[Rfam]
RNA sequence: CCCUGACAGGUGCAAUCCGGCAUCUGACAUUAGCCACGACAGGAGAUACAUAUG
Numbered sequence: 001c002c003c004u005g006a007c008a009g010g011u012g013c014a015a016u017c018c019g020g021c022a023u024c025u026g027a028c029a030u031u032a033g034c035c036a037c038g039a040c041a042g043g044a045g046a047u048a049c050a051u052a053u054g
Stems, first nucleotide, its partner, number of pairs: 002043004007026005